[Rfam]
RNA sequence: CUCGCUUUUGGUUUUGUUUAGCUCACAGACAAAGACUUAGACAAGUGGGAAAAACAAAUCCUCUUUUGCAACCCAGAACUUAUUGUUCAAUGGGAAUUUUGAUACAGGUGAGAAGGAACAUG
Numbered sequence: 001c002u003c004g005c006u007u008u009u010g011g012u013u014u015u016g017u018u019u020a021g022c023u024c025a026c027a028g029a030c031a032a033a034g035a036c037u038u039a040g041a042c043a044a045g046u047g048g049g050a051a052a053a054a055c056a057a058a059u060c061c062u063c064u065u066u067u068g069c070a071a072c073c074c075a076g077a078a079c080u081u082a083u084u085g086u087u088c089a090a091u092g093g094g095a096a097u098u099u100u101g102a103u104a105c106a107g108g109u110g111a112g113a114a115g116g117a118a119c120a121u122g
Base pairs, nucleotide, nucleotide: 001049002048003047004046005045006044007043009041010036012034013033014032015031016030017029059118061116062115064113065112066111067110068109074101075100076099077098078097080095081094083092

Shown here is a 122-nucleotide RNA sequence from Odobenus rosmarus, a member of the family "Small nucleolar RNA SNORA40". Its family is annotated with RNA processing and nucleolus in the Gene Ontology. A search with the family's covariance model found it, with a score of 82 bits. The source organism's lineage runs through Eukaryota, Tetrapoda, Laurasiatheria, Caniformia and Odobenus rosmarus. From the family's description: The snoRNA ACA 40 belongs to the H/ACA family of snoRNAs and guides the pseudouridylation of 28S rRNA subunit at position U4565. NB This family has a high threshold value to exclude a large number of closely related sequences that do not appear to have conserved H and ACA boxes, and may be pseudogenes.